RNA sequence: GUCUGGGCAGCACUUUCAAGGACUGUCAAUCCUGAGAAUGCUGAAGUUUUGGGUCAAUCUCAGGUUCGUCAGCCCAUGAAAAGUUGUCUCCAC
Numbered sequence: 001g002u003c004u005g006g007g008c009a010g011c012a013c014u015u016u017c018a019a020g021g022a023c024u025g026u027c028a029a030u031c032c033u034g035a036g037a038a039u040g041c042u043g044a045a046g047u048u049u050u051g052g053g054u055c056a057a058u059c060u061c062a063g064g065u066u067c068g069u070c071a072g073c074c075c076a077u078g079a080a081a082a083g084u085u086g087u088c089u090c091c092a093c
Base pairs, nucleotide, nucleotide: 005090006089007088008086009085010084011083014081015080016079017078020075021074023072024071025070027068029066031064032063033062034061035060036059037058039056040055
The record is a 93-nucleotide RNA sequence from Hemibagrus wyckioides, which matches "mir-1388 microRNA precursor family" in Rfam.
Pairs were carried over by alignment from the consensus structure, which was predicted with RNAalifold.
Rfam 15.1 lists 600 matches to the family in 570 species.
Gene Ontology terms of the family: miRNA-mediated post-transcriptional gene silencing and RISC complex.
A reference for the family is Soares et al. (2009), "Parallel DNA pyrosequencing unveils new zebrafish microRNAs", BMC Genomics.
Taxonomically the source falls in Hemibagrus (Eukaryota, Opisthokonta, Teleostomi, Euteleostomi).
It scores 79 bits against the family's covariance model.